A member of the RNA family "mir-166 microRNA precursor family" from Gossypium anomalum, 94 nucleotides long. About the family: This family represents the plant microRNA (miRNA) precursor mir-166.

[Rfam]
RNA sequence: GUUGCGGGGAAUGUUGUCUGGUUCGAAGUCAUUCAUGUGAAUGUUUUAAACGACCUUCAUGAAUGAUUUCGGACCAGGCUUCAUUCCCCCCAAC
Numbered sequence: 001g002u003u004g005c006g007g008g009g010a011a012u013g014u015u016g017u018c019u020g021g022u023u024c025g026a027a028g029u030c031a032u033u034c035a036u037g038u039g040a041a042u043g044u045u046u047u048a049a050a051c052g053a054c055c056u057u058c059a060u061g062a063a064u065g066a067u068u069u070c071g072g073a074c075c076a077g078g079c080u081u082c083a084u085u086c087c088c089c090c091c092a093a094c
Stems, first nucleotide, its partner, number of pairs: 001094004006089008016079006024071003

The family's consensus secondary structure was predicted with PFOLD.